[Rfam]
RNA sequence: UCUGGAUCAAUGAUGCUGCUGUAAAUCUGCGUUAUCUAUCUGCAUGUCCCAAAAGGAUUGAAGAUGACUAUUUACCUACUGAGAUCCAGA
Dot-bracket structure: (((((((............................................................................)))))))

This 90-nucleotide sequence from Camphora micrantha belongs to the Rfam family "Small nucleolar RNA snoR27". By type it is a C/D-box small nucleolar RNA. Clan: snR68 clan. Pairs were carried over by alignment from the consensus structure, which was predicted with WAR. Lineage of the source: Eukaryota > Streptophytina > Spermatophyta > Mesangiospermae > Camphora. Rfam links the family to the GO terms nucleolus and RNA processing. The match comes from Rfam's covariance-model search (66 bits).